[Rfam]
RNA sequence: UGGCAGUGAUUUCUGUCUUAGGGCACCUUUGGAAUAACCAUUAAAUAAUAAUACCUUCUUUCUGAGCCAU
Numbered sequence: 001u002g003g004c005a006g007u008g009a010u011u012u013c014u015g016u017c018u019u020a021g022g023g024c025a026c027c028u029u030u031g032g033a034a035u036a037a038c039c040a041u042u043a044a045a046u047a048a049u050a051a052u053a054c055c056u057u058c059u060u061u062c063u064g065a066g067c068c069a070u
Stems, first nucleotide, its partner, number of pairs: 001069004